The record is an 88-nucleotide RNA sequence, which matches "chrB-a RNA" in Rfam. Rfam's curators put it in the seed alignment. It is annotated as a cis-regulatory element.
[Rfam]
RNA sequence: CCCAAGGGGCACAUCCGCGAUCGCCCCGUGAGGCUUCGGCCGAAGCAUCGCGUCCUCAACUCCAGACUCCAGGAGAGGACGCCCCAUG
Numbered sequence: 001c002c003c004a005a006g007g008g009g010c011a012c013a014u015c016c017g018c019g020a021u022c023g024c025c026c027c028g029u030g031a032g033g034c035u036u037c038g039g040c041c042g043a044a045g046c047a048u049c050g051c052g053u054c055c056u057c058a059a060c061u062c063c064a065g066a067c068u069c070c071a072g073g074a075g076a077g078g079a080c081g082c083c084c085c086a087u088g
Stems, first nucleotide, its partner, number of pairs: 006027005050082008